The family of this 353-nucleotide RNA sequence from Wenxinia saemankumensis is "Alphaproteobacteria transfer-messenger RNA". The source organism's lineage runs through Bacteria, Pseudomonadota, Alphaproteobacteria, Rhodobacterales and Wenxinia. Pairs were carried over by alignment from the consensus structure, which is taken from published work. A search with the family's covariance model found it, with a score of 305 bits. It is annotated as a non-coding RNA gene. The family is grouped with related families in Rfam's "tRNA clan". Rfam links the family to the GO term RNA catabolic process.
RNA sequence: CCGCUUGAUCCCCGUGGCCGGGGCCCCUAGAUUGGGGCUGUCUCCGCAAGGGGACUAUGGACAUAAACGCGCUCGUAAUAAGCGGAUCGGACCCGGGGGCGGUACCCGGCGGCUCCACCACACAUCCCUCGUUGGGGGCGAAUGGGGCCGAAACAGGAUCGACGAACGUCUAAAGGGGUUUGCUUUGUCCCGGUGAGGUACCACCGUUAUCGGUCCGAAUUGUACAGUUGCCAACGACAACCGUGCUCCGGUGGCCCUCGCUGCGUAAGCAGUGCGGAAUACCGAAAUCUAAGUCCUUGCGCCUAGCAGCGUAAGGCGGGGUUCGCAGGCACCUGGCAACAGAAGCCUGCACU
Dot-bracket structure: .......................................(((((......)))))...(((((.....((((((........((..(((...(((((.......)))))(((((((...........................)))))))............))).)).......))))..))..)))))((((..[[.[[[)))).....]]]]]......................................................................................................[[[[..((((((]]]]..........))))))...